RNA sequence: ACGCAGGCCAUGCCUAGUGGUUACUUCGAGUUUCAAAUGCCCACAACUUCGCACCACGGGCGCAGACCUGCGUUUUU
Numbered sequence: 001a002c003g004c005a006g007g008c009c010a011u012g013c014c015u016a017g018u019g020g021u022u023a024c025u026u027c028g029a030g031u032u033u034c035a036a037a038u039g040c041c042c043a044c045a046a047c048u049u050c051g052c053a054c055c056a057c058g059g060g061c062g063c064a065g066a067c068c069u070g071c072g073u074u075u076u077u
Stems, first nucleotide, its partner, number of pairs: 002072006012061004017057004025053001027051003
A member of the RNA family "Vault RNA" from Trichonephila clavata, 77 nucleotides long.
The match comes from Rfam's covariance-model search (42 bits).
About the family: This family of RNAs are found as part of the enigmatic vault ribonucleoprotein complex.